Clostridiales-1 RNA: a 166-nucleotide sequence from Eubacterium sp. CAG:156.
RNA sequence: UGAUACCAGGGUUAUAAUUCCAUAAACCACAUGAGCUUGCUCAAAUGUGGUUUAUGGAAUUCAUGACCCGUCCCAACAUGAGCAUAAAAGUGGAAUGAAAUCCCACGAUAUGCGAAUGUUGGUCAGAUUGCGAGAGUGUGAAGCACGAAGCAAUCUGAAGGUAUCA
Numbered sequence: 001u002g003a004u005a006c007c008a009g010g011g012u013u014a015u016a017a018u019u020c021c022a023u024a025a026a027c028c029a030c031a032u033g034a035g036c037u038u039g040c041u042c043a044a045a046u047g048u049g050g051u052u053u054a055u056g057g058a059a060u061u062c063a064u065g066a067c068c069c070g071u072c073c074c075a076a077c078a079u080g081a082g083c084a085u086a087a088a089a090g091u092g093g094a095a096u097g098a099a100a101u102c103c104c105a106c107g108a109u110a111u112g113c114g115a116a117u118g119u120u121g122g123u124c125a126g127a128u129u130g131c132g133a134g135a136g137u138g139u140g141a142a143g144c145a146c147g148a149a150g151c152a153a154u155c156u157g158a159a160g161g162u163a164u165c166a
Stems, first nucleotide, its partner, number of pairs: 001166007010068004016061016032043004073122007082113004090106004095101002125156007136146004

The family has 194 seed sequences and 1,172 matches in Rfam 15.1.